Shown here is a 57-nucleotide RNA sequence from Haloechinothrix alba, a member of the family "F6 TB sRNA".
A reference for the family is Arnvig and Young (2009), "Identification of small RNAs in Mycobacterium tuberculosis", Mol Microbiol.
The base pairs follow the family's consensus structure, which is taken from published work.
It is annotated as a small RNA.
[Rfam]
RNA sequence: AGGAUAACCCCGUGGUGCUGGCGGACCCCCGACCUGGCAGCGUCACGGGGUUUCCCA
Numbered sequence: 001a002g003g004a005u006a007a008c009c010c011c012g013u014g015g016u017g018c019u020g021g022c023g024g025a026c027c028c029c030c031g032a033c034c035u036g037g038c039a040g041c042g043u044c045a046c047g048g049g050g051u052u053u054c055c056c057a
Stems, first nucleotide, its partner, number of pairs: 002056002007051014022036001